RNA: IS605-orfB-I RNA
RNA sequence: GCUGCGUAAAUGCUACUUAGCCCAAGAGAGCUAGUAUCAUCCCUGCGUUGGCAUACAUCUCAUAAUAGAACGAUAUGGCAAAGUGGAUUGUAAUCCCUUGAGAAUAUGAAAAUAUUCAAGAGAGAAAUCCAAUAGUUAUAUCGGAAUGGUUAGCCGUAUGACCAUAGGAGAAUCACCUAAAACAUGAUGAAAUAUAUGAGAAUUCAUUAGAAUUCACAUUAUUUUUUACGGUUAU
Numbered sequence: 001g002c003u004g005c006g007u008a009a010a011u012g013c014u015a016c017u018u019a020g021c022c023c024a025a026g027a028g029a030g031c032u033a034g035u036a037u038c039a040u041c042c043c044u045g046c047g048u049u050g051g052c053a054u055a056c057a058u059c060u061c062a063u064a065a066u067a068g069a070a071c072g073a074u075a076u077g078g079c080a081a082a083g084u085g086g087a088u089u090g091u092a093a094u095c096c097c098u099u100g101a102g103a104a105u106a107u108g109a110a111a112a113u114a115u116u117c118a119a120g121a122g123a124g125a126a127a128u129c130c131a132a133u134a135g136u137u138a139u140a141u142c143g144g145a146a147u148g149g150u151u152a153g154c155c156g157u158a159u160g161a162c163c164a165u166a167g168g169a170g171a172a173u174c175a176c177c178u179a180a181a182a183c184a185u186g187a188u189g190a191a192a193u194a195u196a197u198g199a200g201a202a203u204u205c206a207u208u209a210g211a212a213u214u215c216a217c218a219u220u221a222u223u224u225u226u227u228a229c230g231g232u233u234a235u
Base pairs, nucleotide, nucleotide: 001052002051004048005047006046007045008044010040011039012038014036015035017034018033019032020031021030022028071143072142073141074140075139076138077137078136084131085130086129087128088127089126094123095122097120098119099118100117101116102115147164148163149162150161151160153232154231155230156229157228158227159184166178167177168176189225190224191223192222193221194220197218198217200215201214202213203212204211